[Rfam]
RNA sequence: AAAGAAGGUUUCUAGGGUUCCGAUGUGCCUACAUGACUGGUCCGAGAGAAACGAGCUACUGACAAGAUUUUUUUUUGAUAAGGAUAAAAGUAGCUACACGGAGGGAGAAAAGCCCGGGAGGA
Numbered sequence: 001a002a003a004g005a006a007g008g009u010u011u012c013u014a015g016g017g018u019u020c021c022g023a024u025g026u027g028c029c030u031a032c033a034u035g036a037c038u039g040g041u042c043c044g045a046g047a048g049a050a051a052c053g054a055g056c057u058a059c060u061g062a063c064a065a066g067a068u069u070u071u072u073u074u075u076u077g078a079u080a081a082g083g084a085u086a087a088a089a090g091u092a093g094c095u096a097c098a099c100g101g102a103g104g105g106a107g108a109a110a111a112g113c114c115c116g117g118g119a120g121g122a
Stems, first nucleotide, its partner, number of pairs: 008052005015043002020040002022037001023034004054095007097117001099120001103115003
RNA: Guanidine-I riboswitch aptamer